The record is a 102-nucleotide sequence from Eptatretus burgeri, which matches "Small nucleolar RNA SNORD16" in Rfam.
The family is grouped with related families in Rfam's "SNORD16 clan".
Its family is annotated with nucleolus and RNA processing in the Gene Ontology.
Lineage of the source: Eukaryota > Chordata > Myxini > Eptatretinae > Eptatretus.
Nucleotides: 102
Stems, first nucleotide, its partner, number of pairs: 001102003022083002025080001032072004040065001042058005
Number, partner (000 for none) and nucleotide at each position: 001102u002101g003100c004000u005000g006000u007000g008000a009000u010000g011000g012000a013000u014000g015000u016000a017000a018000u019000u020000u021000g022083c023082g024000u025080c026000u027000g028000a029000c030000g031000a032072c033071g034070u035069g036000a037000g038000u039000g040065g041000g042058g043057a044056c045055g046054g047000u048000u049000g050000c051000c052000u053000g054046c055045c056044g057043u058042c059000g060000a061000u062000a063000a064000g065040c066000c067000a068000c069035c070034a071033c072032g073000c074000c075000c076000g077000u078000g079000u080025g081000c082023u083022g084000c085000c086000a087000a088000c089000u090000a091000a092000a093000c094000g095000a096000c097000u098000g099000a100003g101002c102001a